[Rfam]
RNA: L31-Corynebacteriaceae ribosomal protein leader
RNA sequence: ACUCAGGCACGAUCGUCAGAUCCGUUUUGCUGGCGAAGCGACCUGAAGUUUCAAUCCUGAGGGA
Numbered sequence: 001a002c003u004c005a006g007g008c009a010c011g012a013u014c015g016u017c018a019g020a021u022c023c024g025u026u027u028u029g030c031u032g033g034c035g036a037a038g039c040g041a042c043c044u045g046a047a048g049u050u051u052c053a054a055u056c057c058u059g060a061g062g063g064a
Stems, first nucleotide, its partner, number of pairs: 001049003004045004013036007